This 141-nucleotide sequence from Enterococcus faecium belongs to the Rfam family "Enterococcus-1 RNA".
Lineage of the source: Bacteria > Bacillati > Bacillota > Enterococcaceae > Enterococcus faecium.

RNA sequence: CGUUUGUUUUUUUGUGCUUUGCGCAAAAAUGGGGCAAUGUCCAUGUACCGACUUUGCAGAGGAACGGCGCAAACAAAGGUAAAUUCGACUGACGGAGGAACGGAGUCACCAAGAAUUUAAUGGACAAUGAACCAACAAACG
Numbered sequence: 001c002g003u004u005u006g007u008u009u010u011u012u013u014g015u016g017c018u019u020u021g022c023g024c025a026a027a028a029a030u031g032g033g034g035c036a037a038u039g040u041c042c043a044u045g046u047a048c049c050g051a052c053u054u055u056g057c058a059g060a061g062g063a064a065c066g067g068c069g070c071a072a073a074c075a076a077a078g079g080u081a082a083a084u085u086c087g088a089c090u091g092a093c094g095g096a097g098g099a100a101c102g103g104a105g106u107c108a109c110c111a112a113g114a115a116u117u118u119a120a121u122g123g124a125c126a127a128u129g130a131a132c133c134a135a136c137a138a139a140c141g
Stems, first nucleotide, its partner, number of pairs: 001141007009029008031133002035129002038126007048079002053073002081118006090108004